[Rfam]
RNA sequence: GUUUGCAGACAGACAGUAGUGAGUUAUUUCAAAGUUACAGAUGGAAGCUCUUGUUCUGUUCUUCCUCCCUCUUACUACUGCACUUGACUAGUCUUAA
Dot-bracket structure: (.(((..(.(.((..((((((((.......(.((.....................)).)...........))))))...))..))).)))).)....